[Rfam]
Nucleotides: 076
Stems, first nucleotide, its partner, number of pairs: 001076005
Number, partner (000 for none) and nucleotide at each position: 001076g002075c003074g004073u005072g006000a007000a008000u009000g010000a011000u012000g013000a014000u015000c016000u017000g018000a019000u020000u021000u022000c023000u024000u025000u026000u027000g028000u029000c030000g031000g032000a033000u034000a035000c036000c037000c038000c039000u040000u041000c042000a043000c044000u045000c046000u047000g048000c049000a050000a051000u052000g053000a054000g055000u056000g057000a058000g059000a060000u061000c062000c063000u064000c065000c066000u067000u068000c069000u070000g071000a072005c073004a074003c075002g076001c

Overview
The record is a 76-nucleotide sequence from Acanthochromis polyacanthus, which matches "Small nucleolar RNA SNORD101" in Rfam. Its Rfam clan is "SNORD101 clan". The family's consensus secondary structure was predicted with PFOLD. Rfam links the family to the GO terms nucleolus and RNA processing. It is annotated as a C/D-box small nucleolar RNA. The source organism's lineage runs through Eukaryota, Eumetazoa, Actinopterygii, Euacanthomorphacea and Acanthochromis.